[Rfam]
RNA sequence: UUAUUAAGUGAAUAAAAUCCGUAGACAGUAGGUACUCAUUAUGAGUUUAAAGUGGCCUACCGAGGAAUGGAUAUAGAUUUAUAAAUUCGAAAUCUGAGGUCUUUCCAUGUCUACGGGGAAAGACCUUUUAUAUUUUAGGU
Numbered sequence: 001u002u003a004u005u006a007a008g009u010g011a012a013u014a015a016a017a018u019c020c021g022u023a024g025a026c027a028g029u030a031g032g033u034a035c036u037c038a039u040u041a042u043g044a045g046u047u048u049a050a051a052g053u054g055g056c057c058u059a060c061c062g063a064g065g066a067a068u069g070g071a072u073a074u075a076g077a078u079u080u081a082u083a084a085a086u087u088c089g090a091a092a093u094c095u096g097a098g099g100u101c102u103u104u105c106c107a108u109g110u111c112u113a114c115g116g117g118g119a120a121a122g123a124c125c126u127u128u129u130a131u132a133u134u135u136u137a138g139g140u
Base pairs, nucleotide, nucleotide: 028060029059030058031057032056033055034046035045036044098125099124100123101122102121103120104119105118106117